This 119-nucleotide RNA from Caenorhabditis elegans belongs to the Rfam family "C. elegans snoRNA ceN33". By type it is a C/D-box small nucleolar RNA. On this family, see Jia et al., BMC Mol Biol 2007: "Systematic identification of non-coding RNA 2,2,7-trimethylguanosine cap structures in Caenorhabditis elegans". Rfam's curators put it in the seed alignment.
[Rfam]
RNA sequence: CAAGCCUCCUGGCGCUGCUAUUAGCCGGGAUUCAUAGGCUGGCGAUGAUUGAGAUUGUUCCCACACGCAAUUUCUCCUGAUCCACAUGAAGGCUAAACUUCCUUGGACGUCUGAGCCGC
Number, nucleotide and partner (000 for none) at each position: 001c000002a000003a000004g000005c000006c000007u000008c000009c000010u118011g117012g116013c115014g000015c000016u000017g000018c000019u000020a000021u000022u000023a000024g000025c000026c000027g000028g000029g000030a000031u000032u000033c000034a000035u000036a000037g000038g000039c000040u000041g000042g000043c000044g000045a000046u000047g000048a000049u000050u000051g000052a000053g000054a000055u000056u000057g000058u000059u000060c000061c000062c000063a000064c000065a000066c000067g000068c000069a000070a000071u000072u000073u000074c000075u000076c000077c000078u000079g000080a000081u000082c000083c000084a000085c000086a000087u000088g000089a000090a000091g000092g000093c000094u000095a000096a000097a000098c000099u000100u000101c000102c000103u000104u000105g000106g000107a000108c000109g000110u000111c000112u000113g000114a000115g013116c012117c011118g010119c000